RNA: Bacterial large subunit ribosomal RNA, nucleotides 618 to 677
Organism: Stackebrandtia endophytica
RNA sequence: CGUCAGAGCCUAUGCAUCGGUUUACCGGUGGUGGGUGAUGGCGUGCCUUUUGAAGAAUGA
Numbered sequence: 001c002g003u004c005a006g007a008g009c010c011u012a013u014g015c016a017u018c019g020g021u022u023u024a025c026c027g028g029u030g031g032u033g034g035g036u037g038a039u040g041g042c043g044u045g046c047c048u049u050u051u052g053a054a055g056a057a058u059g060a
Stems, first nucleotide, its partner, number of pairs: 002042004008036005046059001048057001